The record is a 102-nucleotide RNA sequence from Alteribacter keqinensis, which matches "Purine riboswitch aptamer" in Rfam. The organism belongs to Alteribacter, within Bacteria.

RNA sequence: UAACAAUAAAUGAAUAUCCUUCGUAUAUCCUUAGGAAUAUGGCCUAAGAGUCUCUACCGGGUUGCCAAUAACGACCUGACUAUGAAGGCAGAAUCUAUGUUU
Numbered sequence: 001u002a003a004c005a006a007u008a009a010a011u012g013a014a015u016a017u018c019c020u021u022c023g024u025a026u027a028u029c030c031u032u033a034g035g036a037a038u039a040u041g042g043c044c045u046a047a048g049a050g051u052c053u054c055u056a057c058c059g060g061g062u063u064g065c066c067a068a069u070a071a072c073g074a075c076c077u078g079a080c081u082a083u084g085a086a087g088g089c090a091g092a093a094u095c096u097a098u099g100u101u102u
Base pairs, nucleotide, nucleotide: 018088019087020086021085022084023083024082025081030048031047032046033045034044035043058078059077060076061075062074063073064072